[Rfam]
Overview:
SAM riboswitch aptamer (S box leader): a 103-nucleotide RNA from Sphingobacterium paucimobilis. The family's consensus secondary structure is taken from published work.

RNA sequence: GAUUUAUAAAGAAGUGGCGAGAGACAGGCUCUAUGACCCGCUGGCAACCAUCAAGAGAUUGAACGGUGCUAAUUCCUGUCCCAAUUAAGGGAAAAUAUAAAUA
Numbered sequence: 001g002a003u004u005u006a007u008a009a010a011g012a013a014g015u016g017g018c019g020a021g022a023g024a025c026a027g028g029c030u031c032u033a034u035g036a037c038c039c040g041c042u043g044g045c046a047a048c049c050a051u052c053a054a055g056a057g058a059u060u061g062a063a064c065g066g067u068g069c070u071a072a073u074u075c076c077u078g079u080c081c082c083a084a085u086u087a088a089g090g091g092a093a094a095a096u097a098u099a100a101a102u103a
Base pairs, nucleotide, nucleotide: 002102003101004100005099006098007097008096013042014041015040016039017038021031022030023029025078026077027076028075043070044069045068046067048066049065051062052061053060054059074095079092080091081090082089